[Rfam]
RNA sequence: CUCUUAUCGAGAGUGGUGGAGGGACUGGCCCGAUGAAACCCGGCAACCGGCAUUUUAUAUGCGUCUUGGUGCCAAUUCCAGCAGCGUUUCGCUGAAAGAUGAGAG
Numbered sequence: 001c002u003c004u005u006a007u008c009g010a011g012a013g014u015g016g017u018g019g020a021g022g023g024a025c026u027g028g029c030c031c032g033a034u035g036a037a038a039c040c041c042g043g044c045a046a047c048c049g050g051c052a053u054u055u056u057a058u059a060u061g062c063g064u065c066u067u068g069g070u071g072c073c074a075a076u077u078c079c080a081g082c083a084g085c086g087u088u089u090c091g092c093u094g095a096a097a098g099a100u101g102a103g104a105g
Base pairs, nucleotide, nucleotide: 001105002104003103004102005101006100007099008098013041015040016039017038021031022030023029025081026080027079028078042073043072044071045070047069048068049065050064051063077097082094083093084092085091086090

SAM riboswitch aptamer (S box leader): a 105-nucleotide sequence from Thermoanaerobacter brockii. Lineage of the source: Bacteria > Bacillota > Clostridia > Thermoanaerobacter > Thermoanaerobacter brockii. The base pairs follow the family's consensus structure, which is taken from published work. The family has 457 seed sequences and 9,625 matches in Rfam 15.1.